[Rfam]
RNA sequence: AAAAGUUGUCACCGAUCAUAAAUCUAUGGUAACUCUUUAGGCAUUACUUCGAAUUAAGCGAAUUAUUGUACUUAUUAUGAAAGCCCUUCUACGAGUGAUUAGCCUGGUCGUGAUUAGUGUGGUGGUGAUUAUUCUACCAUCGUGCGGGGCUGCACUCGGAGAAAGAAAGGCUUAGAAAUCAAGUCUUAAUCGAAAGAGAACCCCCGCACCGACAGGUCCGGGGGUUUUUUUUGGUCUUAAGGUCUUACAGUAUUUUAAUGUGGAGCAGAAGAUGAAACCUAGCACAAAAUUCUGUUGUUCCCGGCAAAA
Numbered sequence: 001a002a003a004a005g006u007u008g009u010c011a012c013c014g015a016u017c018a019u020a021a022a023u024c025u026a027u028g029g030u031a032a033c034u035c036u037u038u039a040g041g042c043a044u045u046a047c048u049u050c051g052a053a054u055u056a057a058g059c060g061a062a063u064u065a066u067u068g069u070a071c072u073u074a075u076u077a078u079g080a081a082a083g084c085c086c087u088u089c090u091a092c093g094a095g096u097g098a099u100u101a102g103c104c105u106g107g108u109c110g111u112g113a114u115u116a117g118u119g120u121g122g123u124g125g126u127g128a129u130u131a132u133u134c135u136a137c138c139a140u141c142g143u144g145c146g147g148g149g150c151u152g153c154a155c156u157c158g159g160a161g162a163a164a165g166a167a168a169g170g171c172u173u174a175g176a177a178a179u180c181a182a183g184u185c186u187u188a189a190u191c192g193a194a195a196g197a198g199a200a201c202c203c204c205c206g207c208a209c210c211g212a213c214a215g216g217u218c219c220g221g222g223g224g225u226u227u228u229u230u231u232u233g234g235u236c237u238u239a240a241g242g243u244c245u246u247a248c249a250g251u252a253u254u255u256u257a258a259u260g261u262g263g264a265g266c267a268g269a270a271g272a273u274g275a276a277a278c279c280u281a282g283c284a285c286a287a288a289a290u291u292c293u294g295u296u297g298u299u300c301c302c303g304g305c306a307a308a309a
Stems, first nucleotide, its partner, number of pairs: 005033007016021001038074004045068002048065001049061002085263002093246002099240003102236001104234004109119003121141005128135001143160001145158004164190001169186002172183002195229001197228010208217003264296007273284002
Shown here is a 309-nucleotide RNA from Tatumella morbirosei, a member of the family "Soft rot Enterobacteriaceae Rev 39 5'UTR".
Rfam's curators write: From bacteria cultured under starvation conditions.
It scores 143 bits against the family's covariance model.